This 106-nucleotide RNA sequence belongs to the Rfam family "drum RNA". The base pairs follow the family's consensus structure, which is taken from published work. Firmicutes, Bacteroidetes (1 example), Proteobacteria (2 examples), Spirochaetes (2 examples). It is one of the family's seed sequences.

[Rfam]
RNA sequence: UAUCUGUGAAACAGGAGCCGUGAUGGAGAGCGGGGACUGUGGAGAUAUUGCAAAAGGUGGCAACUUACCAUAAACCAUCUAGCGAAAGCGAAAGAAAGUUGCUGAU
Numbered sequence: 001u002a003u004c005u006g007u008g009a010a011a012c013a014g015g016a017g018c019c020g021u022g023a024u025g026g027a028g029a030g031c032g033g034g035g036a037c038u039g040u041g042g043a044g045a046u047a048u049u050g051c052a053a054a055a056g057g058u059g060g061c062a063a064c065u066u067a068c069c070a071u072a073a074a075c076c077a078u079c080u081a082g083c084g085a086a087a088g089c090g091a092a093a094g095a096a097a098g099u100u101g102c103u104g105a106u
Base pairs, nucleotide, nucleotide: 001047002046003045004044011040012039013038014037018033019032020031021030023078024077025076026075061101062100063099082089083088
Dot-bracket structure: ((((......((((...((((.[[[[...))))...))))...)))).............(((...........]]]]...((....)).........))).....